Shown here is an 84-nucleotide sequence from Ferroacidibacillus organovorans, a member of the family "c-di-GMP-I riboswitch aptamer". GEMM was predicted in a large-scale screen for bacterial structured RNA regulatory elements. The organism belongs to Ferroacidibacillus, within Bacteria. A search with the family's covariance model found it, with a score of 62 bits.

RNA sequence: AAGAAUCGUCGGCAAAACUGUGGAAACGCAGUGGCGCAAAGCUAUAGGGGCUUCGGCAAAUUGCCAUGCUAGCCAGUUGCAAGU
Numbered sequence: 001a002a003g004a005a006u007c008g009u010c011g012g013c014a015a016a017a018c019u020g021u022g023g024a025a026a027c028g029c030a031g032u033g034g035c036g037c038a039a040a041g042c043u044a045u046a047g048g049g050g051c052u053u054c055g056g057c058a059a060a061u062u063g064c065c066a067u068g069c070u071a072g073c074c075a076g077u078u079g080c081a082a083g084u
Stems, first nucleotide, its partner, number of pairs: 012037002017032006040078004047074002049070003056064003